[Rfam]
RNA sequence: GGGUCUCUCUUGCUAGACCAGAUUGAGCCUGGGAGCUCUCUGACUAGCAGAGGAACCCAC
Numbered sequence: 001g002g003g004u005c006u007c008u009c010u011u012g013c014u015a016g017a018c019c020a021g022a023u024u025g026a027g028c029c030u031g032g033g034a035g036c037u038c039u040c041u042g043a044c045u046a047g048c049a050g051a052g053g054a055a056c057c058c059a060c
Stems, first nucleotide, its partner, number of pairs: 001058004006054003010050007019042004025038004
Notes:
Rfam assigns this 60-nucleotide sequence from Lentivirus humimdef1 to the family "Trans-activation response element (TAR)". About the family: This family represents the HIV trans-activation response (TAR) element which is known to be required for the trans-activation of the viral promoter and for virus replication. The TAR hairpin acts as a binding site for the Tat protein and this interaction stimulates the activity of the long terminal repeat promoter. Further experiments have shown that TAR acts as a miRNA that protects against apoptosis. It is one of the family's seed sequences. On this family, see Ouellet et al., Nucleic Acids Res 2008: "Identification of functional microRNAs released through asymmetrical processing of HIV-1 TAR element". Rfam links the family to the GO terms miRNA-mediated post-transcriptional gene silencing and RISC complex.